[Rfam]
RNA: tRNA
RNA sequence: GCAAUCGUAGCUCAGUUGGUAGAGCGCUGUCCUUCCAAGUCAGAUGUCGCGCGUUCGAAUCGCGUCGGUUGCU
Numbered sequence: 001g002c003a004a005u006c007g008u009a010g011c012u013c014a015g016u017u018g019g020u021a022g023a024g025c026g027c028u029g030u031c032c033u034u035c036c037a038a039g040u041c042a043g044a045u046g047u048c049g050c051g052c053g054u055u056c057g058a059a060u061c062g063c064g065u066c067g068g069u070u071g072c073u
Stems, first nucleotide, its partner, number of pairs: 001072007010025004027043003031039001049065005